MIR2912 microRNA precursor family: a 154-nucleotide RNA sequence from Populus deltoides.
Rfam 15.1 lists 15,051 matches to the family in 15 species.
RNA sequence: UCUAGAACUUGCAAUAUGGGUUGAACACUGAAUAGUGCCGGGCUACAAGACAAAUUCAGAUUUCUCUCUUGUUGCUAAGAUUUGGAUUCCAAAAUAGCAUAAUUGAGUUUUGAACUCUCAUGAAUAUUUUAGGUCUGUUUCUUAGCUUUCCAUC
Number, nucleotide and partner (000 for none) at each position: 001u000002c000003u152004a000005g150006a149007a148008c145009u144010u000011g143012c000013a000014a140015u000016a138017u137018g136019g135020g134021u132022u131023g130024a129025a128026c000027a127028c000029u000030g000031a000032a000033u000034a000035g121036u120037g119038c000039c000040g118041g117042g116043c000044u114045a000046c000047a111048a110049g109050a108051c107052a000053a104054a103055u102056u101057c000058a000059g098060a000061u097062u096063u000064c000065u000066c000067u091068c000069u000070u000071g087072u086073u085074g000075c000076u000077a000078a000079g000080a000081u000082u000083u000084g000085g073086a072087u071088u000089c000090c000091a067092a000093a000094a000095u000096a062097g061098c059099a000100u000101a056102a055103u054104u053105g000106a000107g051108u050109u049110u048111u047112g000113a000114a044115c000116u042117c041118u040119c037120a036121u035122g000123a000124a000125u000126a000127u027128u025129u024130u023131a022132g021133g000134u020135c019136u018137g017138u016139u000140u014141c000142u000143u011144a009145g008146c000147u000148u007149u006150c005151c000152a003153u000154c000